Shown here is a 77-nucleotide sequence from Crocodylus porosus, a member of the family "Mammalian CPEB3 ribozyme". It scores 46 bits against the family's covariance model. Pairs were carried over by alignment from the consensus structure, which is taken from published work. From the family's description: The mammalian CPEB3 ribozyme is a self cleaving RNA located in the second intron of the CPEB3 gene which belongs to a family of genes regulating messenger RNA polyadenylation. Taxonomically the source falls in Crocodylus (Eukaryota, Sauropsida, Sauria, Crocodylia).
RNA sequence: AGGUCAAAACUGUGAGGCCACAGCAGAACUGCUCACAGAGCUGCCUGUCAGAUUCCAAUGAAUCUGUAAAUUCUGCU
Numbered sequence: 001a002g003g004u005c006a007a008a009a010c011u012g013u014g015a016g017g018c019c020a021c022a023g024c025a026g027a028a029c030u031g032c033u034c035a036c037a038g039a040g041c042u043g044c045c046u047g048u049c050a051g052a053u054u055c056c057a058a059u060g061a062a063u064c065u066g067u068a069a070a071u072u073c074u075g076c077u
Stems, first nucleotide, its partner, number of pairs: 014044001016042003022077007029038003049066007